[Rfam]
Shown here is a 78-nucleotide RNA from Mastigocoleus testarum, a member of the family "Cyano-1 RNA". Lineage of the source: Bacteria > Cyanophyceae > Hapalosiphonaceae > Mastigocoleus > Mastigocoleus testarum. Rfam 15.1 lists 283 matches to the family in 194 species. A search with the family's covariance model found it, with a score of 49 bits. The family's consensus secondary structure is taken from published work.
RNA sequence: UUGUGUGUGAGGAGCAAGUGUAAACCAAAGGGUGCUUGGAGUGGAAACACGGCAACACGUCCAAGCACUUUUUGUUUU
Numbered sequence: 001u002u003g004u005g006u007g008u009g010a011g012g013a014g015c016a017a018g019u020g021u022a023a024a025c026c027a028a029a030g031g032g033u034g035c036u037u038g039g040a041g042u043g044g045a046a047a048c049a050c051g052g053c054a055a056c057a058c059g060u061c062c063a064a065g066c067a068c069u070u071u072u073u074g075u076u077u078u
Stems, first nucleotide, its partner, number of pairs: 015074001027073005034066002038062003041058003
Dot-bracket structure: ..............(...........(((((..((..((((((............))).)))..))..))))))....